Shown here is a 134-nucleotide RNA from Cytospora mali, a member of the family "U4 spliceosomal RNA". The base pairs follow the family's consensus structure, which is taken from published work.

RNA sequence: AUCCUGGUGCACGGGCUUUACGUGAUUCAGUGAAGGUACGCCUGAGAACACGUUUUUGCUAGUUGAAAACUAUAACAUGACCACUCCUAGUUGGCUUCGGCUGGCUAGGGAAUUUUUGGAACCCUCUUUUCUUG
Numbered sequence: 001a002u003c004c005u006g007g008u009g010c011a012c013g014g015g016c017u018u019u020a021c022g023u024g025a026u027u028c029a030g031u032g033a034a035g036g037u038a039c040g041c042c043u044g045a046g047a048a049c050a051c052g053u054u055u056u057u058g059c060u061a062g063u064u065g066a067a068a069a070c071u072a073u074a075a076c077a078u079g080a081c082c083a084c085u086c087c088u089a090g091u092u093g094g095c096u097u098c099g100g101c102u103g104g105c106u107a108g109g110g111a112a113u114u115u116u117u118g119g120a121a122c123c124c125u126c127u128u129u130u131c132u133u134g
Base pairs, nucleotide, nucleotide: 020053021052022051023050024049026048027047028046034043035042036041085110086109087108088107089106090105091104092103093102094101095100